[Rfam]
RNA sequence: UGGUUCCCACCCCUUGUAACAGCAACUCCAUGUGGAAGUGCCCACUGGUUCCAAUGGGGCUGCUGUUAUUGGGGAUGGGGAC
Number, nucleotide and partner (000 for none) at each position: 001u000002g000003g000004u000005u000006c000007c000008c000009a000010c000011c074012c073013c000014u000015u000016g069017u068018a067019a066020c065021a064022g063023c062024a000025a000026c059027u058028c057029c056030a055031u054032g000033u053034g052035g051036a000037a000038g000039u000040g000041c000042c000043c000044a000045c000046u000047g000048g000049u000050u000051c035052c034053a033054a031055u030056g029057g028058g027059g026060c000061u000062g023063c022064u021065g020066u019067u018068a017069u016070u000071g000072g000073g012074g011075a000076u000077g000078g000079g000080g000081a000082c000
RNA: mir-194 microRNA precursor family